A member of the RNA family "Group II catalytic intron D1-D4-6" from Olavius sp. associated proteobacterium Delta 1, 253 nucleotides long. Rfam's curators write: Group II introns are found in rRNA, tRNA and mRNA of organelles in fungi, plants and protists, and also in mRNA in bacteria. On this family, see Bonen and Vogel, Trends Genet 2001: "The ins and outs of group II introns". It scores 89 bits against the family's covariance model. Gene Ontology term of the family: Group II intron splicing. Taxonomically the source falls in Deltaproteobacteria (Bacteria, delta/epsilon subdivisions).
RNA sequence: GAAGUCCCACACGAGCAAAGUUUAGCCAACAGCUCAUUAGCGAAGUCCACGGGCAAAACCGGUAACGGGGGUCCGAAGCUGGAUGGAGCGAGAUUGCAGGCUCUGUAUUGAGCCCCGAUAAAUGUAUAAUUGUGGUUCUAUGGGAUAAGUCCCGACAUGUCGGGAUGAAAGCCGACGCUUUGCAAGCAGCGGAAGACAGCAAACCUGGACGCGUUUUGGCAAGGGUGCAGAUGACCACCGGGGUCUGAGACCA
Numbered sequence: 001g002a003a004g005u006c007c008c009a010c011a012c013g014a015g016c017a018a019a020g021u022u023u024a025g026c027c028a029a030c031a032g033c034u035c036a037u038u039a040g041c042g043a044a045g046u047c048c049a050c051g052g053g054c055a056a057a058a059c060c061g062g063u064a065a066c067g068g069g070g071g072u073c074c075g076a077a078g079c080u081g082g083a084u085g086g087a088g089c090g091a092g093a094u095u096g097c098a099g100g101c102u103c104u105g106u107a108u109u110g111a112g113c114c115c116c117g118a119u120a121a122a123u124g125u126a127u128a129a130u131u132g133u134g135g136u137u138c139u140a141u142g143g144g145a146u147a148a149g150u151c152c153c154g155a156c157a158u159g160u161c162g163g164g165a166u167g168a169a170a171g172c173c174g175a176c177g178c179u180u181u182g183c184a185a186g187c188a189g190c191g192g193a194a195g196a197c198a199g200c201a202a203a204c205c206u207g208g209a210c211g212c213g214u215u216u217u218g219g220c221a222a223g224g225g226u227g228c229a230g231a232u233g234a235c236c237a238c239c240g241g242g243g244u245c246u247g248a249g250a251c252c253a
Stems, first nucleotide, its partner, number of pairs: 013035004020030003023222001025220002038091001040089002045084003050075005059068003109247001110245001112244006132238005171197001173195001176191004203232001205230003209226002212223001